The family of this 89-nucleotide sequence from Methyloversatilis universalis is "c-di-GMP-I-GGC riboswitch aptamer". Rfam links the family to the GO term cyclic-di-GMP binding.
[Rfam]
RNA sequence: GCUGAAAAAGGCAAACCCGUCGAAAGGCGGGGACGCAAAGUCACCGGUCUAAUCCGCGCGUGCGCGGGAUGACGGCGGGACCGCCACUG
Numbered sequence: 001g002c003u004g005a006a007a008a009a010g011g012c013a014a015a016c017c018c019g020u021c022g023a024a025a026g027g028c029g030g031g032g033a034c035g036c037a038a039a040g041u042c043a044c045c046g047g048u049c050u051a052a053u054c055c056g057c058g059c060g061u062g063c064g065c066g067g068g069a070u071g072a073c074g075g076c077g078g079g080a081c082c083g084c085c086a087c088u089g
Stems, first nucleotide, its partner, number of pairs: 003086002011036002016031006034075001040081003044078003047073003
Dot-bracket structure: ..((......((...((((((....))))))..[))...(((.((((((.....................))).]))))))...))...